[Rfam]
RNA sequence: GGGGAAGCUUUGCAAAGUGGUUACUUCGCAUAUUUGUGUUUCACAUUACUUACCUAAUGUCCGAGUUUUCGAGUUCGAGCCCAGGAGGGAUCCACAACCACUUGCGCUAUCUACCCCUUCU
Numbered sequence: 001g002g003g004g005a006a007g008c009u010u011u012g013c014a015a016a017g018u019g020g021u022u023a024c025u026u027c028g029c030a031u032a033u034u035u036g037u038g039u040u041u042c043a044c045a046u047u048a049c050u051u052a053c054c055u056a057a058u059g060u061c062c063g064a065g066u067u068u069u070c071g072a073g074u075u076c077g078a079g080c081c082c083a084g085g086a087g088g089g090a091u092c093c094a095c096a097a098c099c100a101c102u103u104g105c106g107c108u109a110u111c112u113a114c115c116c117c118u119u120c121u
Stems, first nucleotide, its partner, number of pairs: 002116003006112002012105004017101004025079004

The record is a 121-nucleotide RNA from Holothuria leucospilota, which matches "Vault RNA" in Rfam. A reference for the family is Stadler et al. (2009), "Evolution of Vault RNAs", Mol Biol Evol. By type it is a non-coding RNA gene.